A member of the RNA family "c-di-AMP riboswitch aptamer (ydaO/yuaA leader)" from Paenibacillus solani, 139 nucleotides long.
[Rfam]
RNA sequence: CAUUUUAAGGAGCCGAAUUCCCAUAUGAAUUGGGAAGCGGGGGAUCCGUUUUGGGUGAAUUGAUCUCGCAAGAGAGGGAUCAUAGGGGACCUUCAACCGAACCCUUAAGCUAACCUCGCAGGCAAUGGAAGGAGCACUU
Numbered sequence: 001c002a003u004u005u006u007a008a009g010g011a012g013c014c015g016a017a018u019u020c021c022c023a024u025a026u027g028a029a030u031u032g033g034g035a036a037g038c039g040g041g042g043g044a045u046c047c048g049u050u051u052u053g054g055g056u057g058a059a060u061u062g063a064u065c066u067c068g069c070a071a072g073a074g075a076g077g078g079a080u081c082a083u084a085g086g087g088g089a090c091c092u093u094c095a096a097c098c099g100a101a102c103c104c105u106u107a108a109g110c111u112a113a114c115c116u117c118g119c120a121g122g123c124a125a126u127g128g129a130a131g132g133a134g135c136a137c138u139u
Stems, first nucleotide, its partner, number of pairs: 012123003018036006037119006053104003061082007085098002
Taxonomically the source falls in Paenibacillus (Bacteria, Bacillota, Caryophanales, Paenibacillaceae). This family represents a conserved RNA structure found upstream of the ydaO and yuaA genes in Bacillus subtilis and related genes in other bacteria. The ydaO/yuaA element is thought to act as a genetic 'off' switch for the ydaO and yuaA genes in its native state. It is believed that the element may be triggered during osmotic shock leading to activation of ydaO, a predicted amino acid transporter gene, and members of the yuaA-yubG operon which code for KtrA and KtrB K+ transporters.